[Rfam]
RNA sequence: AUACAGUGGAGCAGCAACCACGAUAAAAACGGGCGGAACCGAAAAGCCAGAUGAGUAGGAAUAAA
Numbered sequence: 001a002u003a004c005a006g007u008g009g010a011g012c013a014g015c016a017a018c019c020a021c022g023a024u025a026a027a028a029a030c031g032g033g034c035g036g037a038a039c040c041g042a043a044a045a046g047c048c049a050g051a052u053g054a055g056u057a058g059g060a061a062u063a064a065a
Stems, first nucleotide, its partner, number of pairs: 006021004032048003039059002
RNA: DUF805 RNA
Organism: Flavihumibacter solisilvae